[Rfam]
Shown here is a 90-nucleotide RNA sequence from Octopus sinensis, a member of the family "Vault RNA". Taxonomically the source falls in Octopus (Eukaryota, Opisthokonta, Spiralia, Mollusca).
RNA sequence: GUGUGAGCUUAGCCGUGUGGUUACUUCGUUAAUCUGAACUCUAUGUGAAUUCUUCCUACCUUGAAACCACAGGCGCUGUCUAACACGCUA
Numbered sequence: 001g002u003g004u005g006a007g008c009u010u011a012g013c014c015g016u017g018u019g020g021u022u023a024c025u026u027c028g029u030u031a032a033u034c035u036g037a038a039c040u041c042u043a044u045g046u047g048a049a050u051u052c053u054u055c056c057u058a059c060c061u062u063g064a065a066a067c068c069a070c071a072g073g074c075g076c077u078g079u080c081u082a083a084c085a086c087g088c089u090a
Stems, first nucleotide, its partner, number of pairs: 002085003006081002012074003017070004025065004
This family of RNAs are found as part of the enigmatic vault ribonucleoprotein complex.